The record is a 78-nucleotide RNA from Glycomyces paridis, which matches "Actino-pnp RNA" in Rfam. The organism belongs to Glycomyces, within Bacteria. The base pairs follow the family's consensus structure, which is taken from published work. Rfam classes the family as a cis-regulatory element.
RNA sequence: CCCGGUCCUCGGUAGUGGCAUCCGGAACGCCCCGCGCGAAGCGGGGCCCUUCUCCGAGUGCUUCGAUCGAAGACCGGA
Numbered sequence: 001c002c003c004g005g006u007c008c009u010c011g012g013u014a015g016u017g018g019c020a021u022c023c024g025g026a027a028c029g030c031c032c033c034g035c036g037c038g039a040a041g042c043g044g045g046g047c048c049c050u051u052c053u054c055c056g057a058g059u060g061c062u063u064c065g066a067u068c069g070a071a072g073a074c075c076g077g078a
Stems, first nucleotide, its partner, number of pairs: 002077006009070005017062005023056004